[Rfam]
RNA sequence: AUCGUUCAAUCUAUUUAUAAUAGAUCGGAAGUAAGCAUCAAGCUGAAGGAACGCAGA
Numbered sequence: 001a002u003c004g005u006u007c008a009a010u011c012u013a014u015u016u017a018u019a020a021u022a023g024a025u026c027g028g029a030a031g032u033a034a035g036c037a038u039c040a041a042g043c044u045g046a047a048g049g050a051a052c053g054c055a056g057a
Stems, first nucleotide, its partner, number of pairs: 003053005009025007028054001034044003

Background: Shown here is a 57-nucleotide RNA sequence, a member of the family "Glutamine riboswitch aptamer (glnA leader)". Its family is annotated with glutamine binding in the Gene Ontology.